RNA sequence: GGUGCGACAGCAAGCAACGGAAUCCCAAAAGCAGCUGUCUUCCUCUGAGCAUCCCAGCUGCGGUUGGAUUUCGUUACCUGCUCUCCUGCCC
Numbered sequence: 001g002g003u004g005c006g007a008c009a010g011c012a013a014g015c016a017a018c019g020g021a022a023u024c025c026c027a028a029a030a031g032c033a034g035c036u037g038u039c040u041u042c043c044u045c046u047g048a049g050c051a052u053c054c055c056a057g058c059u060g061c062g063g064u065u066g067g068a069u070u071u072c073g074u075u076a077c078c079u080g081c082u083c084u085c086c087u088g089c090c091c
Base pairs, nucleotide, nucleotide: 009082010081011080012079017074018073019072020071021070022069023068024067025066027065028064031061032060033059034058035057036056037055

A member of the RNA family "mir-191 microRNA precursor family" from Chelonoidis abingdonii, 91 nucleotides long. A search with the family's covariance model found it, with a score of 94 bits. Rfam 15.1 lists 621 matches to the family in 455 species. A reference for the family is Kim et al. (2004), "Identification of many microRNAs that copurify with polyribosomes in mammalian neurons", Proc Natl Acad Sci U S A. The family's consensus secondary structure was predicted with RNAalifold. Rfam links the family to the GO terms RISC complex and miRNA-mediated post-transcriptional gene silencing.